This 138-nucleotide RNA from Enterobacteriaceae bacterium strain FGI 57 belongs to the Rfam family "Yersinia sRNA 155(RyfD)". Rfam's curators write: The sRNA was identified by and is confirmed to have a stable secondary structure by using genome-wide structure probing at different temperatures. Taxonomically the source falls in Enterobacteriaceae (Bacteria, Pseudomonadota, Gammaproteobacteria, Enterobacterales). On this family, see Nuss et al., PLoS Genet 2015: "Transcriptomic profiling of Yersinia pseudotuberculosis reveals reprogramming of the Crp regulon by temperature and uncovers Crp as a master regulator of small RNAs". A search with the family's covariance model found it, with a score of 107 bits.
RNA sequence: CAAGACGAUCCAGAAGGCUGACUUAUUUUUCGCAUUAAACAGGUCAUUAACCUUGAAUAAUUGAGGGAUGACCUCAUUUAAUCUCCAGUAGCAAAAUUGACCUGUUAUGGGAGGAAUUAUGCGUCUGGAUCGUCUUAC
Numbered sequence: 001c002a003a004g005a006c007g008a009u010c011c012a013g014a015a016g017g018c019u020g021a022c023u024u025a026u027u028u029u030u031c032g033c034a035u036u037a038a039a040c041a042g043g044u045c046a047u048u049a050a051c052c053u054u055g056a057a058u059a060a061u062u063g064a065g066g067g068a069u070g071a072c073c074u075c076a077u078u079u080a081a082u083c084u085c086c087a088g089u090a091g092c093a094a095a096a097u098u099g100a101c102c103u104g105u106u107a108u109g110g111g112a113g114g115a116a117u118u119a120u121g122c123g124u125c126u127g128g129a130u131c132g133u134c135u136u137a138c
Base pairs, nucleotide, nucleotide: 002136003135004134005133006132007131008130009129010128011127012126013125014124016122020118021117023042024041026039027038028037051066052065053064054063055062056061067078068077069076070075082114083113084112085111086110088108089107090106